[Rfam]
RNA sequence: GAAUAUCAUCAUACCUGUACAAUAUUAGGGUGGUUUUUAAAUCUAAUACUGUCAGGUAGUGAUGAUCAUC
Numbered sequence: 001g002a003a004u005a006u007c008a009u010c011a012u013a014c015c016u017g018u019a020c021a022a023u024a025u026u027a028g029g030g031u032g033g034u035u036u037u038u039a040a041a042u043c044u045a046a047u048a049c050u051g052u053c054a055g056g057u058a059g060u061g062a063u064g065a066u067c068a069u070c
Stems, first nucleotide, its partner, number of pairs: 001070002005066006012058006020051002023048007